[Rfam]
RNA sequence: GGUGGUGCAGUGAUUAUGAAACAUUCCUCGUACUUACCGGAGAUCCCCAUGAAUGACUCCUAUACACCCAUAGAAUCUGAUCACCA
Numbered sequence: 001g002g003u004g005g006u007g008c009a010g011u012g013a014u015u016a017u018g019a020a021a022c023a024u025u026c027c028u029c030g031u032a033c034u035u036a037c038c039g040g041a042g043a044u045c046c047c048c049a050u051g052a053a054u055g056a057c058u059c060c061u062a063u064a065c066a067c068c069c070a071u072a073g074a075a076u077c078u079g080a081u082c083a084c085c086a
Stems, first nucleotide, its partner, number of pairs: 003086002006083002

Small nucleolar RNA snoR8a: an 86-nucleotide sequence from Triticum aestivum. Rfam links the family to the GO terms RNA processing and nucleolus. The family's consensus secondary structure was predicted with WAR.